[Rfam]
RNA sequence: UGCCAUAAACCCGUAGAUCCGAACUUGUGUUGCUUCAGUUCACAAGCUCGUGUCUAUGGGUCUAUGUCAU
Numbered sequence: 001u002g003c004c005a006u007a008a009a010c011c012c013g014u015a016g017a018u019c020c021g022a023a024c025u026u027g028u029g030u031u032g033c034u035u036c037a038g039u040u041c042a043c044a045a046g047c048u049c050g051u052g053u054c055u056a057u058g059g060g061u062c063u064a065u066g067u068c069a070u
Stems, first nucleotide, its partner, number of pairs: 002068001004066004010060003015055004020050003024046006
The record is a 70-nucleotide RNA from Branchiostoma floridae, which matches "mir-10 microRNA precursor family" in Rfam.
Rfam 15.1 lists 3,853 matches to the family in 853 species.
Rfam links the family to the GO terms RISC complex and miRNA-mediated post-transcriptional gene silencing.